[Rfam]
RNA: mir-48 microRNA precursor family
RNA sequence: UGAGGUAGGCUCAGUAGAUGCGAACGUAAAUGAGCCCACAUCGGCCUUUCACAUCCACUUGCCUUCCUCGCC
Numbered sequence: 001u002g003a004g005g006u007a008g009g010c011u012c013a014g015u016a017g018a019u020g021c022g023a024a025c026g027u028a029a030a031u032g033a034g035c036c037c038a039c040a041u042c043g044g045c046c047u048u049u050c051a052c053a054u055c056c057a058c059u060u061g062c063c064u065u066c067c068u069c070g071c072c
Base pairs, nucleotide, nucleotide: 001070002069003068004067007064008063009062010061013059014058015057017055018054019053020052022050023049024048